A member of the RNA family "RT-14 RNA", 163 nucleotides long. Rfam's curators put it in the seed alignment. The family's RNA type in Rfam is small RNA.
RNA sequence: CUCUAAUAUCAAUUCGGAAUAUAUAUUUUAAGGAAUAUAUACAGUAAUAUAUUAGAUAUUAAAGAGACUUAUUCCAUCCGAUUUACUAAUACAGUAAAAAGGUAAAUAUGAAUCAAUAAAAUACAUAUUAGUAGAGCUAAAAACUAGAAAAUAUGUGAUUUAU
Dot-bracket structure: ..(((((((...((.....(((((((((....)))))))))....)).)))))))......................((.....................)).............(((((.(((((((......((.......)).....))))))).)))))